[Rfam]
RNA sequence: GACAGGGCACAAAAGGCCCACCGAAAAACGACCCGGGCGCAAGCCCGCAGUAGGAAUCGGUGGGAGCCGGUGUUCUGUCGUACGUUUUGAAAAACGA
Numbered sequence: 001g002a003c004a005g006g007g008c009a010c011a012a013a014a015g016g017c018c019c020a021c022c023g024a025a026a027a028a029c030g031a032c033c034c035g036g037g038c039g040c041a042a043g044c045c046c047g048c049a050g051u052a053g054g055a056a057u058c059g060g061u062g063g064g065a066g067c068c069g070g071u072g073u074u075c076u077g078u079c080g081u082a083c084g085u086u087u088u089g090a091a092a093a094a095c096g097a
Base pairs, nucleotide, nucleotide: 001079002078003077004076005075006074007073008072009071010070015068016067019062020061021060022059023058024057029053034047035046036045037044038043083096084095085094
This 97-nucleotide part of an RNA from Haladaptatus paucihalophilus belongs to the Rfam family "Archaeal large subunit ribosomal RNA". NCBI's taxonomy places the organism under Archaea, Halobacteriales, Haladaptataceae, Haladaptatus, Haladaptatus paucihalophilus. Rfam's curators put it in the seed alignment. The family has 91 seed sequences and 2,955 matches in Rfam 15.1. The base pairs follow the family's consensus structure, which is taken from published work. Rfam links the family to the GO terms ribosome and structural constituent of ribosome.